[Rfam]
Rfam assigns this 92-nucleotide RNA sequence from Stegodyphus mimosarum to the family "Vault RNA". From the family's description: This family of RNAs are found as part of the enigmatic vault ribonucleoprotein complex. NCBI's taxonomy places the organism under Eukaryota, Ecdysozoa, Arthropoda, Arachnida, Stegodyphus.

RNA sequence: GCGUAGGCUUUGUCAAGUGGUUACUUCGCCAGUACAGAAUUUCGGGUUCUUGCAACUGCAAAUGGAGACCACUGACGCAAUCCUGCGUUUUU
Numbered sequence: 001g002c003g004u005a006g007g008c009u010u011u012g013u014c015a016a017g018u019g020g021u022u023a024c025u026u027c028g029c030c031a032g033u034a035c036a037g038a039a040u041u042u043c044g045g046g047u048u049c050u051u052g053c054a055a056c057u058g059c060a061a062a063u064g065g066a067g068a069c070c071a072c073u074g075a076c077g078c079a080a081u082c083c084u085g086c087g088u089u090u091u092u
Base pairs, nucleotide, nucleotide: 002087003086004085005084006083007082012076013075014074015073017072018071019070020069025067026066027065